[Rfam]
RNA sequence: GUUGCGAAUGCAGGUGGAACUACAGCCUGUCACGCUCGUGGUCGCGGGUUCGAAUCCCGCCAGCCCCGUAAAAAGGUGCUGUAGCUCAGUCUGGUAGAGCACGACGUUUCACCAUCCCUCGUCGCAACGGG
Number, nucleotide and partner (000 for none) at each position: 001g000002u127003u126004g125005c124006g123007a122008a000009u000010g000011c000012a000013g113014g112015u111016g110017g109018a108019a107020c000021u000022a000023c000024a000025g000026c000027c000028u000029g000030u000031c000032a000033c000034g000035c000036u000037c103038g102039u101040g000041g000042u000043c000044g060045c059046g058047g057048g056049u000050u000051c094052g000053a000054a000055u000056c048057c047058c046059g045060c044061c081062a080063g079064c078065c000066c076067c000068g000069u000070a000071a000072a000073a000074a000075g000076g066077u000078g064079c063080u062081g061082u000083a000084g100085c099086u098087c097088a000089g000090u000091c000092u000093g000094g051095u000096a000097g087098a086099g085100c084101a039102c038103g037104a000105c000106g000107u019108u018109u017110c016111a015112c014113c013114a000115u000116c000117c000118c000119u000120c000121g000122u007123c006124g005125c004126a003127a002128c000129g000130g000131g000
Annotation: Y RNA-like: a 131-nucleotide RNA from Diaphorobacter aerolatus. The family's RNA type in Rfam is small RNA. Rfam 15.1 lists 124 matches to the family in 99 species. From the family's description: In Deinococcus radiodurans Rsr is tethered via Y RNA to the exoribonuclease PNPase and channels single-stranded RNA into the PNPase cavity. Rsr and Y RNA enhance degradation of structured RNAs by PNPase.